[Rfam]
RNA sequence: GGGAUGUGAUGAGAGGUUGGCUUUCGCAAUAUAAAAAUGUGAGAUGGGUGUCCGCCCCAAAGCCUGGUUACGACAAACGGGCGCUCUCAUUAACCAAUCUGAUCCC
Numbered sequence: 001g002g003g004a005u006g007u008g009a010u011g012a013g014a015g016g017u018u019g020g021c022u023u024u025c026g027c028a029a030u031a032u033a034a035a036a037a038u039g040u041g042a043g044a045u046g047g048g049u050g051u052c053c054g055c056c057c058c059a060a061a062g063c064c065u066g067g068u069u070a071c072g073a074c075a076a077a078c079g080g081g082c083g084c085u086c087u088c089a090u091u092a093a094c095c096a097a098u099c100u101g102a103u104c105c106c
Stems, first nucleotide, its partner, number of pairs: 001106004015095004023043005046086007065079002068076001
This 106-nucleotide sequence from Castanea mollissima belongs to the Rfam family "Small nucleolar RNA Z279/snoR105/snoR108". The family has 20 seed sequences and 906 matches in Rfam 15.1. This family includes the plant snoRNAs known as Z279, snoR105 and snoR108. The family's RNA type in Rfam is C/D-box small nucleolar RNA. The literature on the family includes a 2002 paper in Curr Biol by Marker et al., "Experimental RNomics: identification of 140 candidates for small non-messenger RNAs in the plant Arabidopsis thaliana". Rfam links the family to the GO terms RNA processing and nucleolus.